This 376-nucleotide RNA from Histidinibacterium aquaticum belongs to the Rfam family "Bacterial RNase P class A". The source organism's lineage runs through Bacteria, Pseudomonadati, Pseudomonadota, Alphaproteobacteria and Histidinibacterium.

RNA sequence: GCGGAUGGCCGGAUGGCCGCUUCGCUCCUCCGGGAGCGGGGAGGAAAGUCCGGACUCCAUGAAGGCACGGUGCCGGGUAACGCCCGGCGGGGGAAACCCCAGGGAGAGCGCCACAGAGAACAGUCCGCCCCGCAGGCCGGGGUCAGGGUGAAACGGUGGGGUAAGAGCCCACCGGGGACCGGGCAACCGGGACCGCAUGGCAAGCCCCACCGGGAGCAAUGCCGAAUAGGGGCCUCGCGCCGGAAGGCAGGGGAGCCUGACCCGAGAGGCCCGGGUUGGCAGCUGGAGGCGGUCCGGUAACGGGCCGUCCAGAGGAAUGGUCAUCGAACCGGGCACGCCCGGGGAACAGAAUCCGGCUUACAGGCCGUCCGCGCGC
Numbered sequence: 001g002c003g004g005a006u007g008g009c010c011g012g013a014u015g016g017c018c019g020c021u022u023c024g025c026u027c028c029u030c031c032g033g034g035a036g037c038g039g040g041g042a043g044g045a046a047a048g049u050c051c052g053g054a055c056u057c058c059a060u061g062a063a064g065g066c067a068c069g070g071u072g073c074c075g076g077g078u079a080a081c082g083c084c085c086g087g088c089g090g091g092g093g094a095a096a097c098c099c100c101a102g103g104g105a106g107a108g109c110g111c112c113a114c115a116g117a118g119a120a121c122a123g124u125c126c127g128c129c130c131c132g133c134a135g136g137c138c139g140g141g142g143u144c145a146g147g148g149u150g151a152a153a154c155g156g157u158g159g160g161g162u163a164a165g166a167g168c169c170c171a172c173c174g175g176g177g178a179c180c181g182g183g184c185a186a187c188c189g190g191g192a193c194c195g196c197a198u199g200g201c202a203a204g205c206c207c208c209a210c211c212g213g214g215a216g217c218a219a220u221g222c223c224g225a226a227u228a229g230g231g232g233c234c235u236c237g238c239g240c241c242g243g244a245a246g247g248c249a250g251g252g253g254a255g256c257c258u259g260a261c262c263c264g265a266g267a268g269g270c271c272c273g274g275g276u277u278g279g280c281a282g283c284u285g286g287a288g289g290c291g292g293u294c295c296g297g298u299a300a301c302g303g304g305c306c307g308u309c310c311a312g313a314g315g316a317a318u319g320g321u322c323a324u325c326g327a328a329c330c331g332g333g334c335a336c337g338c339c340c341g342g343g344g345a346a347c348a349g350a351a352u353c354c355g356g357c358u359u360a361c362a363g364g365c366c367g368u369c370c371g372c373g374c375g376c
Stems, first nucleotide, its partner, number of pairs: 001372010011361001012325007020041009046359003050356005055216004064258002068212005073087005088102001089100004103207002108205002110201003125147002127143006155173006174196001175194002179190004220281004230272006251263003289308008
The base pairs follow the family's consensus structure, which is taken from published work.
Rfam classes the family as a ribozyme.